[Rfam]
A member of the RNA family "terC RNA" from Methylopila turkensis, 58 nucleotides long. The family's consensus secondary structure is taken from published work. Rfam classes the family as a cis-regulatory element. NCBI's taxonomy places the organism under Bacteria, Pseudomonadati, Alphaproteobacteria, Hyphomicrobiales, Methylopila.
Nucleotides: 058
Base pairs, nucleotide, nucleotide: 006052007051008050009049010048011047012046022041023040024039025038026037027036029034
Number, partner (000 for none) and nucleotide at each position: 001000a002000g003000a004000a005000c006052g007051g008050u009049c010048c011047g012046g013000g014000c015000c016000c017000c018000u019000c020000u021000g022041g023040c024039g025038a026037c027036c028000c029034u030000c031000a032000u033000c034029g035000a036027g037026g038025u039024c040023g041022u042000g043000a044000u045000g046012u047011c048010g049009g050008a051007c052006c053000u054000g055000c056000g057000c058000u